[Rfam]
The record is a 173-nucleotide RNA from Oribacterium sp. KHPX15, which matches "THF (Tetrahydrofolate) riboswitch aptamer" in Rfam. Rfam describes the family as follows. Tetrahydrofolate (THF) riboswitch was first reported for Ames et al. as an RNA motif in 5' untranslated (5'-UTR)regions of folate transport and biosynthesis genes in Firmicutes genomes. The organism belongs to Oribacterium, within Bacteria. A search with the family's covariance model found it, with a score of 65 bits. On this family, see Ames et al., Chem Biol 2010: "A eubacterial riboswitch class that senses the coenzyme tetrahydrofolate".

RNA sequence: AGCAGAGUAGGCAAUCGAGCGUACAGUGCCUUCCGAACGGGGAGUUUGUCGGAGGGACGAAGCCAAUGCAGAGAGCGGUCAGGGAAUUCGUUUGAACAGGAACAAAAUUCUGACCGGAAAAUAUCCUAAAAGGAUAAUGCAUCGGCGCGGUUCGAUGGUCGCAUCCCGCUGCA
Dot-bracket structure: .((((....(((.(((((((((...((.((((((((...[[[.[....))))))))))...(((...............................................................................)))))).)))))).))).].]]]..)))).